[Rfam]
The record is a 549-nucleotide part of an RNA, which matches "Bacterial small subunit ribosomal RNA" in Rfam. A search with the family's covariance model found it, with a score of 1209 bits. Its Rfam clan is "SSU clan".
Nucleotides: 549
Base pairs, nucleotide, nucleotide: 009025010024011023012022013021027539028538029537030536032535033534034533035532036531037530039407040406042404043403044402045400046399047365052363053362054361056360057359058358061155062154063153066152067151069149070148072146073145074144075143076142077141078140162318163317164316171243172242173241174240175239176238177237180235181234185231186230187229188228189227190226191225193208194207195206196205214223215222216221244290245289246288251281252280253279256278257277258276259275260274261273262272263271293315294314295313296312297308298307299306300305320341321340322339323338324337343354344353345352346351371397373396374395375394379392380391381390382389383388410442411441412440413439420433421432422431423430446480448475449474450473451472452471456466483528484527485526486525487524494523495522496521497520498519504511505510
Number, partner (000 for none) and nucleotide at each position: 001000c002000a003000a004000a005000a006000g007000a008000c009025g010024a011023g012022u013021u014000u015000g016000a017000u018000c019000c020000u021013g022012g023011c024010u025009c026000a027539g028538a029537a030536g031000g032535a033534a034533g035532g036531c037530u038000a039407g040406c041000u042404a043403u044402a045400u046399g047365c048000u049000u050000a051000a052363c053362a054361c055000a056360u057359g058358c059000a060000a061155g062154u063153c064000g065000a066152a067151c068000g069149u070148u071000g072146u073145u074144u075143u076142c077141g078140g079000g080000c081000a082000g083000a084000a085000g086000g087000a088000a089000a090000a091000a092000g093000a094000g095000g096000c097000u098000c099000c100000u101000a102000g103000c104000u105000a106000a107000a108000g109000g110000u111000a112000g113000c114000u115000u116000g117000u118000c119000u120000c121000g122000c123000c124000c125000a126000g127000g128000a129000g130000g131000u132000g133000g134000g135000a136000a137000u138000a139000g140078u141077u142076g143075a144074g145073a146072a147000c148070a149069a150000a151067g152066u153063g154062g155061c156000g157000a158000a159000c160000g161000g162318g163317u164316g165000c166000g167000u168000a169000a170000g171243g172242c173241g174240u175239g176238g177237g178000a179000a180235u181234c182000u183000g184000c185231c186230g187229a188228a189227c190226a191225g192000u193208u194207c195206a196205g197000g198000c199000c200000a201000a202000a203000u204000c205196c206195u207194g208193a209000a210000g211000a212000a213000a214223g215222c216221u217000a218000a219000a220000a221216a222215g223214c224000g225191c226190u227189g228188u229187u230186u231185g232000a233000u234181g235180a236000g237177c238176c239175u240174g241173c242172g243171u244290a245289g246288u247000a248000u249000u250000a251281g252280g253279u254000a255000g256278u257277u258276g259275g260274u261273c262272a263271g264000g265000u266000a267000a268000a269000g270000g271263c272262u273261g274260a275259c276258c277257a278256a279253g280252c281251c282000a283000a284000u285000g286000a287000u288246g289245c290244u291000u292000a293315g294314c295313u296312g297308g298307u299306c300305u301000u302000u303000u304000c305300g306299g307298a308297u309000g310000a311000u312296c313295a314294g315293c316164c317163a318162c319000a320341c321340u322339g323338g324337g325000a326000c327000u328000g329000a330000g331000a332000c333000a334000c335000g336000g337324c338323c339322c340321g341320g342000a343354c344353u345352c346351c347000c348000a349000c350000g351346g352345g353344g354343g355000g356000c357000a358058g359057c360056a361054g362053u363052g364000g365047g366000g367000a368000a369000u370000c371397u372000u373396g374395g375394a376000c377000a378000a379392u380391g381390g382389g383388c384000g385000a386000a387000a388383g389382c390381c391380c392379g393000a394375u395374c396373c397371a398000g399046c400045a401000a402044u403043a404042u405000c406040g407039c408000g409000u410442g411441a412440g413439u414000g415000a416000a417000g418000a419000a420433g421432g422431g423430c424000a425000a426000u427000g428000c429000c430423g431422c432421u433420u434000g435000u436000a437000a438000a439413g440412c441411u442410c443000u444000u445000u446480c447000g448475u449474c450473g451472a452471g453000u454000g455000c456466g457000c458000g459000a460000u461000c462000a463000u464000g465000a466456c467000a468000g469000g470000a471452c472451u473450c474449g475448a476000g477000g478000a479000a480446g481000a482000a483528g484527c485526c486525c487524c488000g489000g490000c491000u492000a493000a494523c495522u496521c497520c498519g499000u500000g501000c502000c503000a504511g505510c506000a507000g508000c509000c510505g511504c512000g513000g514000u515000a516000a517000g518000a519498c520497g521496g522495g523494g524487g525486g526485g527484g528483c529000a530037a531036g532035u533034c534033u535032u536030c537029u538028u539027c540000g541000g542000a543000a544000u545000g546000a547000c548000u549000g